This 93-nucleotide sequence from Roseibium aggregatum belongs to the Rfam family "Glycine riboswitch aptamer". A search with the family's covariance model found it, with a score of 66 bits. Pairs were carried over by alignment from the consensus structure. The source organism's lineage runs through Bacteria, Pseudomonadota, Hyphomicrobiales, Stappiaceae and Roseibium.
RNA sequence: AAUGUUUAUGCGGGAGAGGCCGGGUGAAAGGAUCCUGGCGCCGAAGGAGCAACCGCCCCGGAAACUCUCAGGCAGAAGGACCGCAUGAACUGC
Number, nucleotide and partner (000 for none) at each position: 001a000002a000003u000004g000005u000006u088007u087008a086009u085010g084011c083012g082013g081014g000015a000016g000017a000018g000019g000020c038021c037022g036023g035024g000025u000026g000027a000028a000029a000030g000031g000032a000033u000034c000035c023036u022037g021038g020039c000040g073041c072042c071043g069044a068045a000046g000047g067048a066049g065050c000051a000052a000053c061054c060055g000056c000057c000058c000059c000060g054061g053062a000063a000064a000065c049066u048067c047068u044069c043070a000071g042072g041073c040074a000075g000076a000077a000078g000079g000080a000081c013082c012083g011084c010085a009086u008087g007088a006089a000090c000091u000092g000093c000